[Rfam]
RNA: Small nucleolar RNA SNORD87
RNA sequence: GCUGGAAUUAUGAUGAGUACCUAUUGCCGUUUACCCAUCUGAUUGUAUGAUGAGGAUAUUAUAAUUCUGAGAUUCCAGC
Numbered sequence: 001g002c003u004g005g006a007a008u009u010a011u012g013a014u015g016a017g018u019a020c021c022u023a024u025u026g027c028c029g030u031u032u033a034c035c036c037a038u039c040u041g042a043u044u045g046u047a048u049g050a051u052g053a054g055g056a057u058a059u060u061a062u063a064a065u066u067c068u069g070a071g072a073u074u075c076c077a078g079c
Stems, first nucleotide, its partner, number of pairs: 001079007